Shown here is a 107-nucleotide RNA sequence from Oceanobacillus indicireducens, a member of the family "SAM riboswitch aptamer (S box leader)". Lineage of the source: Bacteria > Bacillati > Bacillota > Caryophanales > Oceanobacillus. Rfam links the family to the GO term regulation of gene expression. It scores 86 bits against the family's covariance model. The family is grouped with related families in Rfam's "SAM clan". From the family's description: The SAM riboswitch is found upstream of a number of genes which code for proteins involved in methionine or cysteine biosynthesis in Gram-positive bacteria. The SAM riboswitch acts at the level of transcription termination control. The family's consensus secondary structure is taken from published work.

[Rfam]
RNA sequence: CCUUUAUCAAGAGUCGGGGUAGGAAUCUGGUCCGUUGAUCCCGCGGCAACCAUUACGUUACGUAAUAAGGUGCUAAUUCCAGCAAGCAGAUGCUUGAAAGAUGAGGG
Numbered sequence: 001c002c003u004u005u006a007u008c009a010a011g012a013g014u015c016g017g018g019g020u021a022g023g024a025a026u027c028u029g030g031u032c033c034g035u036u037g038a039u040c041c042c043g044c045g046g047c048a049a050c051c052a053u054u055a056c057g058u059u060a061c062g063u064a065a066u067a068a069g070g071u072g073c074u075a076a077u078u079c080c081a082g083c084a085a086g087c088a089g090a091u092g093c094u095u096g097a098a099a100g101a102u103g104a105g106g107g
Stems, first nucleotide, its partner, number of pairs: 001107008013044001015043004022033003027082004045074004050070002052066004078099001083096005